Rfam assigns this 168-nucleotide RNA sequence from Betaproteobacteria bacterium SCN1 to the family "Manganese Mn2+ riboswitch aptamer (yybP-ykoY)". The base pairs follow the family's consensus structure. Rfam 15.1 lists 1,126 matches to the family in 1,062 species.
[Rfam]
RNA sequence: CGCACCGUCAUGGGGGAGUAGCCGCUCUUCGUCAGAAGAGGCUUGCGUCAACAUGCUUGGCCUUCGGGCCAUGGCGCAGGCAGUCCCGAACCUGGCAAGACCUUUGACCACGAUGCUUCCGACAGGCCGGCGGCGUCGCGGUCAAUCGUCCGUCGCCGGCCCGGGAUC
Numbered sequence: 001c002g003c004a005c006c007g008u009c010a011u012g013g014g015g016g017a018g019u020a021g022c023c024g025c026u027c028u029u030c031g032u033c034a035g036a037a038g039a040g041g042c043u044u045g046c047g048u049c050a051a052c053a054u055g056c057u058u059g060g061c062c063u064u065c066g067g068g069c070c071a072u073g074g075c076g077c078a079g080g081c082a083g084u085c086c087c088g089a090a091c092c093u094g095g096c097a098a099g100a101c102c103u104u105u106g107a108c109c110a111c112g113a114u115g116c117u118u119c120c121g122a123c124a125g126g127c128c129g130g131c132g133g134c135g136u137c138g139c140g141g142u143c144a145a146u147c148g149u150c151c152g153u154c155g156c157c158g159g160c161c162c163g164g165g166a167u168c
Base pairs, nucleotide, nucleotide: 026039027038028037041081042080043079044078045077046076047075048074049073050072058071059070060069061068062067083167084166085165086164087163088162